This 106-nucleotide sequence from Heliomicrobium modesticaldum belongs to the Rfam family "TPP riboswitch aptamer (THI element)". It scores 77 bits against the family's covariance model. The source organism's lineage runs through Bacteria, Bacillota, Heliobacteriaceae, Heliomicrobium and Heliomicrobium modesticaldum.

[Rfam]
RNA sequence: UAAACCUGCUAGGGGUGCCGUCACACGGCUGAGAGAGAAGUUCCCUUCUCAACCCUUCGAACCUGACCUGGGUCAUACCAGCGGAGGGAAGCAAUCGGAAGCGUCU
Numbered sequence: 001u002a003a004a005c006c007u008g009c010u011a012g013g014g015g016u017g018c019c020g021u022c023a024c025a026c027g028g029c030u031g032a033g034a035g036a037g038a039a040g041u042u043c044c045c046u047u048c049u050c051a052a053c054c055c056u057u058c059g060a061a062c063c064u065g066a067c068c069u070g071g072g073u074c075a076u077a078c079c080a081g082c083g084g085a086g087g088g089a090a091g092c093a094a095u096c097g098g099a100a101g102c103g104u105c106u
Base pairs, nucleotide, nucleotide: 007093008092009091010090011056012055013054014053017029018028019027020026021025036049037048038047039046040045062087063086064085068081069080070079071078